[Rfam]
RNA sequence: GUGCAUAUGAUGGAAAAAUUGUAACCACCUGAGACUAAAUGAUGUCUUCAAAGGAACCACUGAUGCAC
Numbered sequence: 001g002u003g004c005a006u007a008u009g010a011u012g013g014a015a016a017a018a019u020u021g022u023a024a025c026c027a028c029c030u031g032a033g034a035c036u037a038a039a040u041g042a043u044g045u046c047u048u049c050a051a052a053g054g055a056a057c058c059a060c061u062g063a064u065g066c067a068c
Base pairs, nucleotide, nucleotide: 001068002067003066004065005064